[Rfam]
RNA sequence: CUCUCUUAUGAUGUACAAAACUAAAACUUUCGUUCUCCUGAGCUAUAAUGCUGAAAAAAUAUGGAGACCUGAGCUGAAGAGAG
Numbered sequence: 001c002u003c004u005c006u007u008a009u010g011a012u013g014u015a016c017a018a019a020a021c022u023a024a025a026a027c028u029u030u031c032g033u034u035c036u037c038c039u040g041a042g043c044u045a046u047a048a049u050g051c052u053g054a055a056a057a058a059a060u061a062u063g064g065a066g067a068c069c070u071g072a073g074c075u076g077a078a079g080a081g082a083g
Stems, first nucleotide, its partner, number of pairs: 003081004
Dot-bracket structure: ..((((.......................................................................))))..
RNA: Small nucleolar RNA Z159/U59
Organism: Acer saccharum